[Rfam]
RNA sequence: GAUCGUGAUGAUGACUCCAUAAAUUCAAGCUCAACAGACCGGAUUGCAGGGUUUCUCAUUCAUGAGAAACUUUAUGCGUGUCGAAAACCCCGCUGAACUGAGCGAUC
Numbered sequence: 001g002a003u004c005g006u007g008a009u010g011a012u013g014a015c016u017c018c019a020u021a022a023a024u025u026c027a028a029g030c031u032c033a034a035c036a037g038a039c040c041g042g043a044u045u046g047c048a049g050g051g052u053u054u055c056u057c058a059u060u061c062a063u064g065a066g067a068a069a070c071u072u073u074a075u076g077c078g079u080g081u082c083g084a085a086a087a088c089c090c091c092g093c094u095g096a097a098c099u100g101a102g103c104g105a106u107c
Base pairs, nucleotide, nucleotide: 001107002106003105004104005103006102